U2 spliceosomal RNA: a 193-nucleotide sequence from Serpula lacrymans.
The source organism's lineage runs through Eukaryota, Dikarya, Agaricomycetidae, Serpula and Serpula lacrymans var. lacrymans.
The base pairs follow the family's consensus structure, which is taken from published work.
Its Rfam clan is "U2 clan".
Gene Ontology terms of the family: pre-mRNA branch point binding, U2 snRNP and mRNA branch site recognition.

[Rfam]
RNA sequence: UUACCACUCUGGCCUUUUGGCUUAGAUCAAGUGUAGUAUCUGUUCUUAAUAGUUUAACCACUAUUAUGGAGGCACCGCCUCCAUUCUUUGGUUAUCUAAUUUUUGCCGCCCUUGUCCUCUUGUGCUCUGCUUGCAACACGAGGGGCGUGAUGACCUUGCUACUGCACUUUCCGGCUUGCGUCGUCGGGGGAUC
Numbered sequence: 001u002u003a004c005c006a007c008u009c010u011g012g013c014c015u016u017u018u019g020g021c022u023u024a025g026a027u028c029a030a031g032u033g034u035a036g037u038a039u040c041u042g043u044u045c046u047u048a049a050u051a052g053u054u055u056a057a058c059c060a061c062u063a064u065u066a067u068g069g070a071g072g073c074a075c076c077g078c079c080u081c082c083a084u085u086c087u088u089u090g091g092u093u094a095u096c097u098a099a100u101u102u103u104u105g106c107c108g109c110c111c112u113u114g115u116c117c118u119c120u121u122g123u124g125c126u127c128u129g130c131u132u133g134c135a136a137c138a139c140g141a142g143g144g145g146c147g148u149g150a151u152g153a154c155c156u157u158g159c160u161a162c163u164g165c166a167c168u169u170u171c172c173g174g175c176u177u178g179c180g181u182c183g184u185c186g187g188g189g190g191a192u193c
Stems, first nucleotide, its partner, number of pairs: 008026003011022004047066006067083007116145008128135002148186006155178001158175003